[Rfam]
RNA sequence: GUUCUUCUCAAGCGAGUCUAGGAUAGUGGAAGCUAGAUGGGAGAUAGGGUAAUAAUUGGCACUUUCGUAAUGAGCCUAGCUCAAUUUUUUAAACAAAUGAAGUAAUAAAUUAGGGUGGAACCGCGUUUUGACG
Numbered sequence: 001g002u003u004c005u006u007c008u009c010a011a012g013c014g015a016g017u018c019u020a021g022g023a024u025a026g027u028g029g030a031a032g033c034u035a036g037a038u039g040g041g042a043g044a045u046a047g048g049g050u051a052a053u054a055a056u057u058g059g060c061a062c063u064u065u066c067g068u069a070a071u072g073a074g075c076c077u078a079g080c081u082c083a084a085u086u087u088u089u090u091a092a093a094c095a096a097a098u099g100a101a102g103u104a105a106u107a108a109a110u111u112a113g114g115g116u117g118g119a120a121c122c123g124c125g126u127u128u129u130g131a132c133g
Stems, first nucleotide, its partner, number of pairs: 001121005008115002016075002022066002025063004031057002034054001038049001086102004
The record is a 133-nucleotide RNA from Streptococcus downei, which matches "Streptococcus sRNA SpR19" in Rfam. The organism belongs to Streptococcus downei, within Bacteria. The sequence is in the family's curated seed alignment. A reference for the family is Mann et al. (2012), "Control of virulence by small RNAs in Streptococcus pneumoniae", PLoS Pathog.